[Rfam]
Background
This 133-nucleotide RNA sequence from Tupaia belangeri belongs to the Rfam family "Small nucleolar RNA SNORA84".
RNA sequence: GCCCUGUGUUUGCUGGGUGCUACUGUGCAGGUACAGCUCUUGGGUGGCUACAGUGGGCAAGAGCAACCCUGUGAUUUAUGCAUGGGGGCUGCUCCUUCUCAGCAGCUGCCAUAGCCUGGUUAUUGGAACAUGG
Numbered sequence: 001g002c003c004c005u006g007u008g009u010u011u012g013c014u015g016g017g018u019g020c021u022a023c024u025g026u027g028c029a030g031g032u033a034c035a036g037c038u039c040u041u042g043g044g045u046g047g048c049u050a051c052a053g054u055g056g057g058c059a060a061g062a063g064c065a066a067c068c069c070u071g072u073g074a075u076u077u078a079u080g081c082a083u084g085g086g087g088g089c090u091g092c093u094c095c096u097u098c099u100c101a102g103c104a105g106c107u108g109c110c111a112u113a114g115c116c117u118g119g120u121u122a123u124u125g126g127a128a129c130a131u132g133g
Stems, first nucleotide, its partner, number of pairs: 001058004007050002010047005016041002019037003069125001071123006080115002082112004087107007

By type it is an H/ACA-box small nucleolar RNA. The match comes from Rfam's covariance-model search (103 bits). Taxonomically the source falls in Tupaia belangeri (Eukaryota, Bilateria, Dipnotetrapodomorpha, Boreoeutheria). Rfam links the family to the GO terms nucleolus and RNA processing.